The record is a 117-nucleotide RNA sequence from Gossypium mustelinum, which matches "mir-399 microRNA precursor family" in Rfam.
[Rfam]
RNA sequence: AGAAGAAUAACGGUGCAAUUCUCCUUUGGCAGAUGAAAUAGUGCACAUUGCACACUUUGUAGUAGAAAAAAUGUAGUGCAAUCAUCCGCCAAAGGAGAAUUGCCCUGCUAUUCAACU
Numbered sequence: 001a002g003a004a005g006a007a008u009a010a011c012g013g014u015g016c017a018a019u020u021c022u023c024c025u026u027u028g029g030c031a032g033a034u035g036a037a038a039u040a041g042u043g044c045a046c047a048u049u050g051c052a053c054a055c056u057u058u059g060u061a062g063u064a065g066a067a068a069a070a071a072u073g074u075a076g077u078g079c080a081a082u083c084a085u086c087c088g089c090c091a092a093a094g095g096a097g098a099a100u101u102g103c104c105c106u107g108c109u110a111u112u113c114a115a116c117u
Stems, first nucleotide, its partner, number of pairs: 005113005011107003015103005021097004027091004032086004
About this RNA
Rfam links the family to the GO terms miRNA-mediated post-transcriptional gene silencing and RISC complex. A reference for the family is Jones-Rhoades and Bartel (2004), "Computational Identification of Plant MicroRNAs and Their Targets, Including a Stress-Induced miRNA", Mol Cell. The source organism's lineage runs through Eukaryota, Embryophyta, Magnoliopsida, Malvales and Gossypium. Rfam describes the family as follows. mir-399 was identified in both Arabidopsis thaliana and Oryza sativa computationally and was later experimentally verified. mir-399 is thought to target mRNAs coding for a phosphatase transporter. The mature sequence is excised from the 3' arm of the hairpin. The family has 13 seed sequences and 2,396 matches in Rfam 15.1. The family's consensus secondary structure was predicted with PFOLD.